Record summary:
Shown here is a 164-nucleotide RNA from Comamonas sp. 26, a member of the family "Manganese Mn2+ riboswitch aptamer (yybP-ykoY)". A search with the family's covariance model found it, with a score of 53 bits.
RNA sequence: CCCCUUGGGGAGUAGCCUGCUUCCACCCUGGAAGCGCAUGCGUCAACAUACUCGGCAUUCAAUUUGCUGUGGCGUAUGCAUCCGUUCUUCGGUUGGCGAGACCAUCGGCAUUUCAUCGCGACGAGCUCGGGCCGCGGUGAGAUGCCGUUGUGCUCAUGCCCGAC
Numbered sequence: 001c002c003c004c005u006u007g008g009g010g011a012g013u014a015g016c017c018u019g020c021u022u023c024c025a026c027c028c029u030g031g032a033a034g035c036g037c038a039u040g041c042g043u044c045a046a047c048a049u050a051c052u053c054g055g056c057a058u059u060c061a062a063u064u065u066g067c068u069g070u071g072g073c074g075u076a077u078g079c080a081u082c083c084g085u086u087c088u089u090c091g092g093u094u095g096g097c098g099a100g101a102c103c104a105u106c107g108g109c110a111u112u113u114c115a116u117c118g119c120g121a122c123g124a125g126c127u128c129g130g131g132c133c134g135c136g137g138u139g140a141g142a143u144g145c146c147g148u149u150g151u152g153c154u155c156a157u158g159c160c161c162g163a164c
Stems, first nucleotide, its partner, number of pairs: 019035003036079010053069005